[Rfam]
RNA: Rhodo-rpoB RNA
Organism: Rhodobacteraceae bacterium THAF1
Nucleotides: 094
Stems, first nucleotide, its partner, number of pairs: 001042005010030007064094002067091002070087004
Number, partner (000 for none) and nucleotide at each position: 001042a002041g003040g004039u005038c006000g007000g008000g009000c010030g011029c012028g013027c014026a015025u016024c017000u018000u019000g020000g021000g022000c023000c024016g025015g026014u027013g028012u029011g030010c031000a032000g033000g034000a035000a036000u037000a038005g039004a040003c041002c042001u043000a044000u045000c046000c047000u048000u049000u050000u051000c052000g053000a054000u055000c056000u057000u058000u059000g060000a061000u062000g063000g064094u065093u066000c067091g068090c069000g070087g071086c072085g073084g074000c075000u076000c077000g078000c079000c080000c081000u082000g083000c084073c085072c086071g087070u088000a089000c090068g091067c092000a093065a094064a